A member of the RNA family "mir-71 microRNA precursor family" from Pristionchus pacificus, 75 nucleotides long. Pairs were carried over by alignment from the consensus structure, which was predicted with RNAalifold. NCBI's taxonomy places the organism under Eukaryota, Protostomia, Nematoda, Diplogasteromorpha, Pristionchus. Gene Ontology terms of the family: RISC complex and miRNA-mediated post-transcriptional gene silencing. A search with the family's covariance model found it, with a score of 55 bits.

RNA sequence: CGAAGGUGAAAGACAUGGGUAGUGAGACGAAGUGAAUGAAUACGCCCGUAUCACUAUUCUGUCCUUCGCCUUUAC
Numbered sequence: 001c002g003a004a005g006g007u008g009a010a011a012g013a014c015a016u017g018g019g020u021a022g023u024g025a026g027a028c029g030a031a032g033u034g035a036a037u038g039a040a041u042a043c044g045c046c047c048g049u050a051u052c053a054c055u056a057u058u059c060u061g062u063c064c065u066u067c068g069c070c071u072u073u074a075c
Base pairs, nucleotide, nucleotide: 008067009066010065012063013062014061015060017059018058019057021055022054023053024052025051027049028048029047